[Rfam]
RNA sequence: AGUAUUAUUAUGAUGAUCCAAGUAAUUUAUGCAUAGUUCAACUGAAUUUUAUGAAGAAACACAACCAUCAAACGUCUUUCACCCCUAUCUGAUUAAUACC
Numbered sequence: 001a002g003u004a005u006u007a008u009u010a011u012g013a014u015g016a017u018c019c020a021a022g023u024a025a026u027u028u029a030u031g032c033a034u035a036g037u038u039c040a041a042c043u044g045a046a047u048u049u050u051a052u053g054a055a056g057a058a059a060c061a062c063a064a065c066c067a068u069c070a071a072a073c074g075u076c077u078u079u080c081a082c083c084c085c086u087a088u089c090u091g092a093u094u095a096a097u098a099c100c
Stems, first nucleotide, its partner, number of pairs: 004097004
The record is a 100-nucleotide sequence from Dujonia railenensis, which matches "Small nucleolar RNA snR60/Z15/Z230/Z193/J17" in Rfam. Rfam links the family to the GO terms nucleolus and RNA processing. The family is grouped with related families in Rfam's "SNORD77 clan". It scores 61 bits against the family's covariance model. The family's RNA type in Rfam is C/D-box small nucleolar RNA. Lineage of the source: Eukaryota > Opisthokonta > Serinales > Debaryomycetaceae > Dujonia.